[Rfam]
RNA sequence: UCUCCCCUUUUAAAUUGAAAAUCCAAAAUAGGCAUUGUUGAUUGGUGCCCAAAAUUAGUUUAUGUGCCUAAAAUUGAGACACAGGUCAUGGUUCUAUCACAAUAAAUGUUUACAGGAGUGACAAUGAGACCUGUAACAUUU
Numbered sequence: 001u002c003u004c005c006c007c008u009u010u011u012a013a014a015u016u017g018a019a020a021a022u023c024c025a026a027a028a029u030a031g032g033c034a035u036u037g038u039u040g041a042u043u044g045g046u047g048c049c050c051a052a053a054a055u056u057a058g059u060u061u062a063u064g065u066g067c068c069u070a071a072a073a074u075u076g077a078g079a080c081a082c083a084g085g086u087c088a089u090g091g092u093u094c095u096a097u098c099a100c101a102a103u104a105a106a107u108g109u110u111u112a113c114a115g116g117a118g119u120g121a122c123a124a125u126g127a128g129a130c131c132u133g134u135a136a137c138a139u140u141u
Base pairs, nucleotide, nucleotide: 004066006064008062029051031049032048033047034046035045081134082133083132084131085130095120096119097118100115

A member of the RNA family "Small nucleolar RNA SNORA1" from Cavia porcellus, 141 nucleotides long. Its family is annotated with RNA processing and nucleolus in the Gene Ontology. Lineage of the source: Eukaryota > Eumetazoa > Craniata > Boreoeutheria > Cavia. ACA1 is a member of the H/ACA class of snoRNA that guide the sites of modification of uridines to pseudouridines. The family's RNA type in Rfam is H/ACA-box small nucleolar RNA. A search with the family's covariance model found it, with a score of 72 bits. The family's consensus secondary structure was predicted with PFOLD.